[Rfam]
RNA sequence: GCCACGUACGGAUGAUCGUUCCUCGUCGGCCGUGUGUUUGAAAUGGUCGGUGGGACUUUCGUCCGUUUGUGUC
Numbered sequence: 001g002c003c004a005c006g007u008a009c010g011g012a013u014g015a016u017c018g019u020u021c022c023u024c025g026u027c028g029g030c031c032g033u034g035u036g037u038u039u040g041a042a043a044u045g046g047u048c049g050g051u052g053g054g055a056c057u058u059u060c061g062u063c064c065g066u067u068u069g070u071g072u073c
Stems, first nucleotide, its partner, number of pairs: 003071004009065007018056004023052001027049005